[Rfam]
RNA: Small nucleolar RNA SNORA23
RNA sequence: GUGGUAAAAUGUGCACGGUUUUUAUCUGUGUCUGAUAGCCACGUCUGCCUGUGCUUUGCAUUCAGAUCUUGUCAUCCACACAAACACCAUGCAGCCGAAGAGUAAGUUAUGGUCAUAGUACUGGCUUCAUGCUGGCUGGUUGGACAUAUUCACCACAGGCCAGCCUCCAAAUCCUCAUACAUAG
Numbered sequence: 001g002u003g004g005u006a007a008a009a010u011g012u013g014c015a016c017g018g019u020u021u022u023u024a025u026c027u028g029u030g031u032c033u034g035a036u037a038g039c040c041a042c043g044u045c046u047g048c049c050u051g052u053g054c055u056u057u058g059c060a061u062u063c064a065g066a067u068c069u070u071g072u073c074a075u076c077c078a079c080a081c082a083a084a085c086a087c088c089a090u091g092c093a094g095c096c097g098a099a100g101a102g103u104a105a106g107u108u109a110u111g112g113u114c115a116u117a118g119u120a121c122u123g124g125c126u127u128c129a130u131g132c133u134g135g136c137u138g139g140u141u142g143g144a145c146a147u148a149u150u151c152a153c154c155a156c157a158g159g160c161c162a163g164c165c166u167c168c169a170a171a172u173c174c175u176c177a178u179a180c181a182u183a184g
Stems, first nucleotide, its partner, number of pairs: 013092003029082003033078002036074001038072002041069001043067005050060003108177001111174002121163006130155002133148001134145001136143001